[Rfam]
RNA sequence: AGUAUACCUUAUCACAGGAUCAUCUAAAAAAUAUUAAUGUGAUUUACAUAAAGGUGCUAACAGCAAUGGGGACCUCAUUACCUUUGGGGAGACUGCCUGUUCUCCUAAAAGUGAAUUUAGAGAACUUACAGAC
Numbered sequence: 001a002g003u004a005u006a007c008c009u010u011a012u013c014a015c016a017g018g019a020u021c022a023u024c025u026a027a028a029a030a031a032u033a034u035u036a037a038u039g040u041g042a043u044u045u046a047c048a049u050a051a052a053g054g055u056g057c058u059a060a061c062a063g064c065a066a067u068g069g070g071g072a073c074c075u076c077a078u079u080a081c082c083u084u085u086g087g088g089g090a091g092a093c094u095g096c097c098u099g100u101u102c103u104c105c106u107a108a109a110a111g112u113g114a115a116u117u118u119a120g121a122g123a124a125c126u127u128a129c130a131g132a133c
Stems, first nucleotide, its partner, number of pairs: 005056005018044006025037001027035001070126002074122003082111004087106006
The family of this 133-nucleotide sequence from Erinaceus europaeus is "Small nucleolar RNA SNORA68". A search with the family's covariance model found it, with a score of 47 bits. The literature on the family includes a 1997 paper in Genes Dev by Ganot et al., "The family of box ACA small nucleolar RNAs is defined by an evolutionarily conserved secondary structure and ubiquitous sequence elements essential for RNA accumulation". Gene Ontology terms of the family: nucleolus and RNA processing. NCBI's taxonomy places the organism under Eukaryota, Chordata, Vertebrata, Erinaceidae, Erinaceus. The family's consensus secondary structure was predicted with PFOLD. From the family's description: U68 is a member of the H/ACA class of small nucleolar RNAs (snoRNAs) which act as guides in the the modification of uridines to pseudouridines.